[Rfam]
RNA sequence: AGCAAAUGGGGAGAAAUUAUUUCAUCUGAAAUUGAUGUUGAUAUACCAAAUGGUCUUUAACGUUCUCUGAUUGUU
Numbered sequence: 001a002g003c004a005a006a007u008g009g010g011g012a013g014a015a016a017u018u019a020u021u022u023c024a025u026c027u028g029a030a031a032u033u034g035a036u037g038u039u040g041a042u043a044u045a046c047c048a049a050a051u052g053g054u055c056u057u058u059a060a061c062g063u064u065c066u067c068u069g070a071u072u073g074u075u
Stems, first nucleotide, its partner, number of pairs: 001075005

This 75-nucleotide RNA from Rhynchospora breviuscula belongs to the Rfam family "Small nucleolar RNA R160".
Rfam classes the family as a C/D-box small nucleolar RNA.
The base pairs follow the family's consensus structure.
From the family's description: snoR160 is a C/D box small nucleolar RNA, which acts as a methylation guide for 25S ribosomal RNA in plants. snoR160 has been alternatively named snoZ270 in rice.
Lineage of the source: Eukaryota > Spermatophyta > commelinids > Cyperoideae > Rhynchospora.
It scores 53 bits against the family's covariance model.
Rfam links the family to the GO terms RNA processing and nucleolus.